This 69-nucleotide sequence from Crossiella cryophila belongs to the Rfam family "ASpks TB sRNA". It scores 69 bits against the family's covariance model. The base pairs follow the family's consensus structure, which is taken from published work.

RNA sequence: CUUCACCGAGCCCAGCCACAGCGGUUCGGCCCGGUCCCGGCCGUAGGUGGCCAGCAGCGCGUCCGCCUC
Numbered sequence: 001c002u003u004c005a006c007c008g009a010g011c012c013c014a015g016c017c018a019c020a021g022c023g024g025u026u027c028g029g030c031c032c033g034g035u036c037c038c039g040g041c042c043g044u045a046g047g048u049g050g051c052c053a054g055c056a057g058c059g060c061g062u063c064c065g066c067c068u069c
Stems, first nucleotide, its partner, number of pairs: 014026004027065003032059002037054001039052001041050003